[Rfam]
Background: This 224-nucleotide sequence from Podarcis lilfordi belongs to the Rfam family "Small nucleolar RNA SNORA73 family". Gene Ontology terms of the family: nucleolus and RNA processing. The base pairs follow the family's consensus structure, which is taken from published work. On this family, see Enright et al., RNA 1996: "5'ETS rRNA processing facilitated by four small RNAs: U14, E3, U17, and U3". Taxonomically the source falls in Podarcis (Eukaryota, Bilateria, Euteleostomi, Squamata). It scores 157 bits against the family's covariance model. Rfam's curators write: U17 (SNORA73A and SNORA73B) also known as E1 belongs to the H/ACA class of small nucleolar RNAs (snoRNAs). Rfam classes the family as an H/ACA-box small nucleolar RNA.
RNA sequence: CCAACAUGGGCAUCCAUUGAGGUGGCUCUCGCAUGGCUCUGCCCAGGUGGCGUAUGGGAGCGUAGCACCGUAUGGGGCAAUGAUGUAUAGUCCUAUUCCACAAUGUUGGACAUGAAGCUUUUCCCCCCCAGACUGAAAAGGCUGGUGUGGGAGGCAUCCUGUAUAUUCCUAUAACUUCCCAGCUUUUACAGUUGUUGUGAAGACAAACCAUGCAGGACACAAGU
Numbered sequence: 001c002c003a004a005c006a007u008g009g010g011c012a013u014c015c016a017u018u019g020a021g022g023u024g025g026c027u028c029u030c031g032c033a034u035g036g037c038u039c040u041g042c043c044c045a046g047g048u049g050g051c052g053u054a055u056g057g058g059a060g061c062g063u064a065g066c067a068c069c070g071u072a073u074g075g076g077g078c079a080a081u082g083a084u085g086u087a088u089a090g091u092c093c094u095a096u097u098c099c100a101c102a103a104u105g106u107u108g109g110a111c112a113u114g115a116a117g118c119u120u121u122u123c124c125c126c127c128c129c130a131g132a133c134u135g136a137a138a139a140g141g142c143u144g145g146u147g148u149g150g151g152a153g154g155c156a157u158c159c160u161g162u163a164u165a166u167u168c169c170u171a172u173a174a175c176u177u178c179c180c181a182g183c184u185u186u187u188a189c190a191g192u193u194g195u196u197g198u199g200a201a202g203a204c205a206a207a208c209c210a211u212g213c214a215g216g217a218c219a220c221a222a223g224u
Stems, first nucleotide, its partner, number of pairs: 001109007008044005014036003019028003047101004056094004060088001062086003065081001158216007175202004180197001182192003